Small nucleolar RNA SNORA44: a 131-nucleotide sequence from Sparus aurata. The family is grouped with related families in Rfam's "SNORA44 clan". Its family is annotated with RNA processing and nucleolus in the Gene Ontology. Rfam 15.1 lists 1,056 matches to the family in 599 species.
RNA sequence: CAGCAUGCUAUCCUAAGGACCAGAGCUUGUUCUGUAGCUCUAGGUUCUCCAAGUGCAUGCAAGAAAACUGGGUGGUCUUUGACUGUUGUGGCCCCCUGUGCCAUGAGCAGCCACUCAACUGUCCUACAGCU
Numbered sequence: 001c002a003g004c005a006u007g008c009u010a011u012c013c014u015a016a017g018g019a020c021c022a023g024a025g026c027u028u029g030u031u032c033u034g035u036a037g038c039u040c041u042a043g044g045u046u047c048u049c050c051a052a053g054u055g056c057a058u059g060c061a062a063g064a065a066a067a068c069u070g071g072g073u074g075g076u077c078u079u080u081g082a083c084u085g086u087u088g089u090g091g092c093c094c095c096c097u098g099u100g101c102c103a104u105g106a107g108c109a110g111c112c113a114c115u116c117a118a119c120u121g122u123c124c125u126a127c128a129g130c131u
Base pairs, nucleotide, nucleotide: 013043014042018039020037021034022033023032024031070124071123072122073121074120075119085111086110088104089103090102091101